[Rfam]
RNA: rne-II RNA
RNA sequence: AUGCGUGUAGGGUGGAGAUGCACAAUCAUCGGCAUGCGUAGCACUGGCUUUCUCGAGACGCUCGAAGCGUCCGCUGCCGAUGGCUGAUUCCUCCUCCUGACUGAGUGCUUCUGUCACCACAGCAAACAGGAGACGUCCGUCGCGACCCCGGCCCCUGGCCGACGUCGCUCGACACAGGAACGACUGACAACCGUUCCUGACGCACACCUGACACCGACCUGAGAGUCGUGUGUGCCGAACGCCGUUUCCGGCAGCCCGGAAACCGA
Dot-bracket structure: .............((((.....((.(((((((...(((.(((....))).......((((.......)))))))..))))))).))....))))(((((...........................)))))..((((.(((((((...((((.....))))...))))..)))...((((((.........)))))).))))........((((((((......)))).))))..........(((((((......)))))))...